[Rfam]
RNA sequence: GAGUCUAACAUAUGUGCAAGUGGUAAAGUGCCAAACUGUUUUAGUUUACGCAAAACGAAAGUAACAACAAUAGAAAUAAAACAAAAAAAAUUAUUGUUUUUGCAUCUAUAACCAAUUAAAAUUUUUUUAGAUUGAAAUUAGAGUAAUAGCGUGUUUGUUAGGACCCGAAAGAUGGUGAACUAUACCUGAGUAGAAUUAAGUCAGGUGAAAACCUGAUGGAAGUUCGUAGCAAUACUGACGUGCAAAUCGUUUGUCAAAUUUGGGUAUAGGGGCGAAAGACUAAUCGAACUAUCUAGUAGCUGGUU
Numbered sequence: 001g002a003g004u005c006u007a008a009c010a011u012a013u014g015u016g017c018a019a020g021u022g023g024u025a026a027a028g029u030g031c032c033a034a035a036c037u038g039u040u041u042u043a044g045u046u047u048a049c050g051c052a053a054a055a056c057g058a059a060a061g062u063a064a065c066a067a068c069a070a071u072a073g074a075a076a077u078a079a080a081a082c083a084a085a086a087a088a089a090a091u092u093a094u095u096g097u098u099u100u101u102g103c104a105u106c107u108a109u110a111a112c113c114a115a116u117u118a119a120a121a122u123u124u125u126u127u128u129a130g131a132u133u134g135a136a137a138u139u140a141g142a143g144u145a146a147u148a149g150c151g152u153g154u155u156u157g158u159u160a161g162g163a164c165c166c167g168a169a170a171g172a173u174g175g176u177g178a179a180c181u182a183u184a185c186c187u188g189a190g191u192a193g194a195a196u197u198a199a200g201u202c203a204g205g206u207g208a209a210a211a212c213c214u215g216a217u218g219g220a221a222g223u224u225c226g227u228a229g230c231a232a233u234a235c236u237g238a239c240g241u242g243c244a245a246a247u248c249g250u251u252u253g254u255c256a257a258a259u260u261u262g263g264g265u266a267u268a269g270g271g272g273c274g275a276a277a278g279a280c281u282a283a284u285c286g287a288a289c290u291a292u293c294u295a296g297u298a299g300c301u302g303g304u305u
Base pairs, nucleotide, nucleotide: 005161006160007159008158009157010156012154013153014152015151016150017149020051021050022049025046026045055062056061070109071108072107073106074105078100079099080098081097082096083095084094111144112143113141115139116137117136122131123130164303165302167300171293172292173291174290175289176288180269181268182267183266184265185264186263187262188261189260190259191257193225194224195223196222200217201216202215203214204213205212206211229254230253231252232251234250235249237248238247271281272280
RNA: Eukaryotic large subunit ribosomal RNA, nucleotides 791 to 1095
Organism: Sciurus carolinensis